This 232-nucleotide RNA from Carassius auratus belongs to the Rfam family "U2 spliceosomal RNA".
NCBI's taxonomy places the organism under Eukaryota, Teleostomi, Otophysi, Cyprinidae, Carassius.
Rfam describes the family as follows. U2 is a small nuclear RNA (snRNA) component of the spliceosome (involved in pre-mRNA splicing). Complementary binding between U2 snRNA (in an area lying towards the 5' end but 3' to hairpin I) and the branchpoint sequence (BPS) of the intron results the bulging out of an unpaired adenosine, on the BPS, which initiates a nucleophilic attack at the intronic 5' splice site, thus starting the first of two transesterification reactions that mediate splicing.
The family's RNA type in Rfam is spliceosomal small nuclear RNA.
Rfam 15.1 lists 71,512 matches to the family in 2,642 species.
[Rfam]
RNA sequence: AUGCCUUUGUUACAAGUGGUUCAUUUGUAAAUUUGUAUGAGUGUAUGGAUAUAAUAAAAAAAAAAAAAAAAAAAAAAAAUCUGUUCUUAUCAGUUUAAUAUCUGAUACGUCCCCCAUCCGGGGACUACAUACUAAAUGGAUUUUUAGAUCACGGAGCUGGAGCCGGGGCUUGCUCCGUCCACUCCAUGCAUCGGCCUGGUAUUGCAGUGUCUCCAGGAACGGUGUGCUUUCC
Numbered sequence: 001a002u003g004c005c006u007u008u009g010u011u012a013c014a015a016g017u018g019g020u021u022c023a024u025u026u027g028u029a030a031a032u033u034u035g036u037a038u039g040a041g042u043g044u045a046u047g048g049a050u051a052u053a054a055u056a057a058a059a060a061a062a063a064a065a066a067a068a069a070a071a072a073a074a075a076a077a078a079a080u081c082u083g084u085u086c087u088u089a090u091c092a093g094u095u096u097a098a099u100a101u102c103u104g105a106u107a108c109g110u111c112c113c114c115c116a117u118c119c120g121g122g123g124a125c126u127a128c129a130u131a132c133u134a135a136a137u138g139g140a141u142u143u144u145u146a147g148a149u150c151a152c153g154g155a156g157c158u159g160g161a162g163c164c165g166g167g168g169c170u171u172g173c174u175c176c177g178u179c180c181a182c183u184c185c186a187u188g189c190a191u192c193g194g195c196c197u198g199g200u201a202u203u204g205c206a207g208u209g210u211c212u213c214c215a216g217g218a219a220c221g222g223u224g225u226g227c228u229u230u231c232c
Stems, first nucleotide, its partner, number of pairs: 008070001088107006109125006153185004159179002165176004188225006195217005